Shown here is a 139-nucleotide RNA from Pectobacterium parmentieri, a member of the family "CpoB/ybgF ICR thermometer". Pairs were carried over by alignment from the consensus structure. The sequence is in the family's curated seed alignment. The family's RNA type in Rfam is RNA thermoregulator. On this family, see Righetti et al., Proc Natl Acad Sci U S A 2016: "Temperature-responsive in vitro RNA structurome of Yersinia pseudotuberculosis".
RNA sequence: UCAGAUCUCUAUCGUUUCUUACGGUAAAGAAAAACCAGCAGUUCUCGGUCAUGACGAAGCGGCCUAUGCCAAAAACCGUCGUGCCGUUCUGGUAUAUUAAGAGAAUCGCAUGAGCAGUAACUUCAGACGUCACCUGUUG
Numbered sequence: 001u002c003a004g005a006u007c008u009c010u011a012u013c014g015u016u017u018c019u020u021a022c023g024g025u026a027a028a029g030a031a032a033a034a035c036c037a038g039c040a041g042u043u044c045u046c047g048g049u050c051a052u053g054a055c056g057a058a059g060c061g062g063c064c065u066a067u068g069c070c071a072a073a074a075a076c077c078g079u080c081g082u083g084c085c086g087u088u089c090u091g092g093u094a095u096a097u098u099a100a101g102a103g104a105a106u107c108g109c110a111u112g113a114g115c116a117g118u119a120a121c122u123u124c125a126g127a128c129g130u131c132a133c134c135u136g137u138u139g
Stems, first nucleotide, its partner, number of pairs: 001047001003045002007041002014035004019030002054138001057135001059133001062130002065127001067125002075118002078115001079113006086106005